RNA sequence: CCCGCGACUAGACGGAAAGACCCCAUGGAGCUUUACUGUAGCCUAAUAUUGGAUUUCGGUAUUUCAUGUACAGGAUAGGUGGGAGACUGGGAAGCAUUGGCGUCAGCUGAUGUGGAGUCACUGUUGGGAUACCACUCUUGAAGUGCUGGAGUUCUAACCUGCGGCUUUGAAUCAAGUCGGGGGACAUUGUUAGGUGGGCAGUUUGACUGGGGCGGUCGCCUCCUAAAGAGUAACGGAGGCGCUCAAAGGUUCGCUCUGCAUGGAUGGAAACCAUGCGUCAGAGUGUAAACGCAAAAGCGAGCCUAACUGCGAGAAUGACGGUUCGAGCAGUAACGAAAGUUGGAGUUAGUGAUCCGGCGGUAUGUGAAUGGAAAUGCCGUCGCUCAACGGAUAAAAGCUACCCUGGGGAUAACAGGCUGAUCUCCCCCAAGAGUCCACAUCGACGGGGAGGUUUGGCACCUCGAUGUCGGCUCAUCGCAUCCUGGGGCUGAAUUCGGUCCCAAGGGUUUGGCUGUUCGCCAAUUAAAGCGGUACGCGAGCUGGGUUCAGAACGUCGUGAGACAGUUCGGUCCCUAUCUGUCGUGGGCGUA
Numbered sequence: 001c002c003c004g005c006g007a008c009u010a011g012a013c014g015g016a017a018a019g020a021c022c023c024c025a026u027g028g029a030g031c032u033u034u035a036c037u038g039u040a041g042c043c044u045a046a047u048a049u050u051g052g053a054u055u056u057c058g059g060u061a062u063u064u065c066a067u068g069u070a071c072a073g074g075a076u077a078g079g080u081g082g083g084a085g086a087c088u089g090g091g092a093a094g095c096a097u098u099g100g101c102g103u104c105a106g107c108u109g110a111u112g113u114g115g116a117g118u119c120a121c122u123g124u125u126g127g128g129a130u131a132c133c134a135c136u137c138u139u140g141a142a143g144u145g146c147u148g149g150a151g152u153u154c155u156a157a158c159c160u161g162c163g164g165c166u167u168u169g170a171a172u173c174a175a176g177u178c179g180g181g182g183g184a185c186a187u188u189g190u191u192a193g194g195u196g197g198g199c200a201g202u203u204u205g206a207c208u209g210g211g212g213c214g215g216u217c218g219c220c221u222c223c224u225a226a227a228g229a230g231u232a233a234c235g236g237a238g239g240c241g242c243u244c245a246a247a248g249g250u251u252c253g254c255u256c257u258g259c260a261u262g263g264a265u266g267g268a269a270a271c272c273a274u275g276c277g278u279c280a281g282a283g284u285g286u287a288a289a290c291g292c293a294a295a296a297g298c299g300a301g302c303c304u305a306a307c308u309g310c311g312a313g314a315a316u317g318a319c320g321g322u323u324c325g326a327g328c329a330g331u332a333a334c335g336a337a338a339g340u341u342g343g344a345g346u347u348a349g350u351g352a353u354c355c356g357g358c359g360g361u362a363u364g365u366g367a368a369u370g371g372a373a374a375u376g377c378c379g380u381c382g383c384u385c386a387a388c389g390g391a392u393a394a395a396a397g398c399u400a401c402c403c404u405g406g407g408g409a410u411a412a413c414a415g416g417c418u419g420a421u422c423u424c425c426c427c428c429a430a431g432a433g434u435c436c437a438c439a440u441c442g443a444c445g446g447g448g449a450g451g452u453u454u455g456g457c458a459c460c461u462c463g464a465u466g467u468c469g470g471c472u473c474a475u476c477g478c479a480u481c482c483u484g485g486g487g488c489u490g491a492a493u494u495c496g497g498u499c500c501c502a503a504g505g506g507u508u509u510g511g512c513u514g515u516u517c518g519c520c521a522a523u524u525a526a527a528g529c530g531g532u533a534c535g536c537g538a539g540c541u542g543g544g545u546u547c548a549g550a551a552c553g554u555c556g557u558g559a560g561a562c563a564g565u566u567c568g569g570u571c572c573c574u575a576u577c578u579g580u581c582g583u584g585g586g587c588g589u590a
Stems, first nucleotide, its partner, number of pairs: 001586008010578003014573002022407004027403002029399005035202004042194007051154016068137001078136005085119003094113008158182003162179006205217004218240006241388001243344002249302006255282002258276006283292002307330004313324003332341003355382007364375002416457003420454001421451007431441002468543001469541004473535001474532005481506002484501006508522005549567004553562003
A member of the RNA family "Bacterial large subunit ribosomal RNA" from Hominimerdicola alba, 590 nucleotides of a longer RNA. The match comes from Rfam's covariance-model search (2767 bits). Gene Ontology terms of the family: ribosome and structural constituent of ribosome. The family's consensus secondary structure is taken from published work.